[Rfam]
Small nucleolar RNA U2-30: a 69-nucleotide RNA from Ailuropoda melanoleuca. The base pairs follow the family's consensus structure, which is taken from published work. Rfam classes the family as a C/D-box small nucleolar RNA. Lineage of the source: Eukaryota > Metazoa > Euteleostomi > Caniformia > Ailuropoda.
RNA sequence: CAACAAUGAAAAGGUUUUACCACUGAUCUUUAUAACUAUGAAGGUUUCUACAAUUGAUCAGAGAGUUGA
Numbered sequence: 001c002a003a004c005a006a007u008g009a010a011a012a013g014g015u016u017u018u019a020c021c022a023c024u025g026a027u028c029u030u031u032a033u034a035a036c037u038a039u040g041a042a043g044g045u046u047u048c049u050a051c052a053a054u055u056g057a058u059c060a061g062a063g064a065g066u067u068g069a
Base pairs, nucleotide, nucleotide: 001065010031011030012029013028014027015026016025